Rfam assigns this 99-nucleotide RNA sequence from Loxodonta africana to the family "Vault RNA".
[Rfam]
RNA sequence: GGGCUGGCUUUAGCUCAGCGGUUCCUUCGGUCUCAUUUCCAGACUGUAGCUGUCCUUUCGAGGGUGGUUCGAGACCCGCGGGCGCUUCCCAGCCUUUUU
Dot-bracket structure: .((((((.....((((.((((....(((((......................................)))))..)))))))).....)))))).....
Taxonomically the source falls in Loxodonta (Eukaryota, Euteleostomi, Sarcopterygii, Afrotheria). It scores 86 bits against the family's covariance model. This family of RNAs are found as part of the enigmatic vault ribonucleoprotein complex. The complex consists of a major vault protein (MVP), two minor vault proteins (VPARP and TEP1), and several small untranslated RNA molecules. It has been suggested that the vault complex is involved in drug resistance.